[Rfam]
RNA sequence: CCGCGUGCGGUGGGAGAAGCGGGGCGACCCGCUGCCGAAGGCGCAAACGCCCGUAAUCGCUCAGGCUCCCAUACCACCGCGCACGA
Numbered sequence: 001c002c003g004c005g006u007g008c009g010g011u012g013g014g015a016g017a018a019g020c021g022g023g024g025c026g027a028c029c030c031g032c033u034g035c036c037g038a039a040g041g042c043g044c045a046a047a048c049g050c051c052c053g054u055a056a057u058c059g060c061u062c063a064g065g066c067u068c069c070c071a072u073a074c075c076a077c078c079g080c081g082c083a084c085g086a
Base pairs, nucleotide, nucleotide: 006081007080008079009078010077011076012075013074019032020031021030022029034066035065036064037062038061041060042059043058047054048053